The family of this 92-nucleotide RNA sequence from Microlunatus kandeliicorticis is "Fluoride riboswitch aptamer (crcB RNA motif)". Taxonomically the source falls in Microlunatus (Bacteria, Actinomycetota, Propionibacteriales, Propionibacteriaceae). Pairs were carried over by alignment from the consensus structure, which is taken from published work. The match comes from Rfam's covariance-model search (40 bits).

RNA sequence: UUUUCAAUUGGCGAUGGAAUCCGCCGGAACCAAUGGUCGACGUUGGUCGGCCAGAGUUCGAACCGCGCGACGCUGAUGAUCCCUACCCCUUU
Numbered sequence: 001u002u003u004u005c006a007a008u009u010g011g012c013g014a015u016g017g018a019a020u021c022c023g024c025c026g027g028a029a030c031c032a033a034u035g036g037u038c039g040a041c042g043u044u045g046g047u048c049g050g051c052c053a054g055a056g057u058u059c060g061a062a063c064c065g066c067g068c069g070a071c072g073c074u075g076a077u078g079a080u081c082c083c084u085a086c087c088c089c090u091u092u
Stems, first nucleotide, its partner, number of pairs: 010025004016083002019080003065073002